[Rfam]
RNA sequence: GAAAGCAGCCAGGGGCGCCCAGCGGACCGGCCGGUCCACGGGCUGAGAGGCACCCUCGGAACCUGAUCCAGUCAAUACUGGCGUAGGGAGGCUGAAUCGGCGGGCA
Numbered sequence: 001g002a003a004a005g006c007a008g009c010c011a012g013g014g015g016c017g018c019c020c021a022g023c024g025g026a027c028c029g030g031c032c033g034g035u036c037c038a039c040g041g042g043c044u045g046a047g048a049g050g051c052a053c054c055c056u057c058g059g060a061a062c063c064u065g066a067u068c069c070a071g072u073c074a075a076u077a078c079u080g081g082c083g084u085a086g087g088g089a090g091g092c093u094g095a096a097u098c099g100g101c102g103g104g105c106a
Stems, first nucleotide, its partner, number of pairs: 006094005011056004016050001017043004062087004068081004